This 259-nucleotide sequence from Paenibacillus dendritiformis belongs to the Rfam family "T-box leader".
The base pairs follow the family's consensus structure, which is taken from published work.
About the family: Uncharged tRNA acts as the effector for transcription antitermination of genes in the T-box leader family. T-boxes are found upstream of many aminoacyl-tRNA synthetase genes and some amino acid biosynthetic genes usually in Gram-positive bacteria. The anticodon of a specific tRNA base pairs to a specifier sequence within the T-box motif, and the NCCA acceptor tail of the tRNA base pairs to a conserved bulge in the T-box antiterminator hairpin.
The family has 48 seed sequences and 19,395 matches in Rfam 15.1.
The source organism's lineage runs through Bacteria, Bacillota, Paenibacillaceae, Paenibacillus and Paenibacillus dendritiformis.
[Rfam]
RNA sequence: AGAAACGCCAUGAAGAGAAGAGUAGAUGAAUGAGGAAGCCUUGCAGAGAGCUCCGGCAGCUGAAAAGGAGCAGGAUUCCCUUCGUUGAACCAAGCCUCUGAGCGGCGCAUCGGAACGGGUUGCCGGGAUGGUGCGACAGGUGCUCCUGUUACAGAGCUAGGGUAUAAGCAUCCGAUGCGGCUGCCGUACCUGAUGAGGCGGAUAUAGCGAUAUAUCGGCGAACCGGGGUGGCACCGCGACAGCAAAUCUCGUCCCCAAG
Numbered sequence: 001a002g003a004a005a006c007g008c009c010a011u012g013a014a015g016a017g018a019a020g021a022g023u024a025g026a027u028g029a030a031u032g033a034g035g036a037a038g039c040c041u042u043g044c045a046g047a048g049a050g051c052u053c054c055g056g057c058a059g060c061u062g063a064a065a066a067g068g069a070g071c072a073g074g075a076u077u078c079c080c081u082u083c084g085u086u087g088a089a090c091c092a093a094g095c096c097u098c099u100g101a102g103c104g105g106c107g108c109a110u111c112g113g114a115a116c117g118g119g120u121u122g123c124c125g126g127g128a129u130g131g132u133g134c135g136a137c138a139g140g141u142g143c144u145c146c147u148g149u150u151a152c153a154g155a156g157c158u159a160g161g162g163u164a165u166a167a168g169c170a171u172c173c174g175a176u177g178c179g180g181c182u183g184c185c186g187u188a189c190c191u192g193a194u195g196a197g198g199c200g201g202a203u204a205u206a207g208c209g210a211u212a213u214a215u216c217g218g219c220g221a222a223c224c225g226g227g228g229u230g231g232c233a234c235c236g237c238g239a240c241a242g243c244a245a246a247u248c249u250c251g252u253c254c255c256c257a258a259g
Base pairs, nucleotide, nucleotide: 007103008102015098016097017096025086026085027084028083029082030081039074040073041072050071051070052069053068054067106135107134108133109132110131111130112129137148138147139146198219199218201216202215203214204213225256226255227254228253236252237251238250239249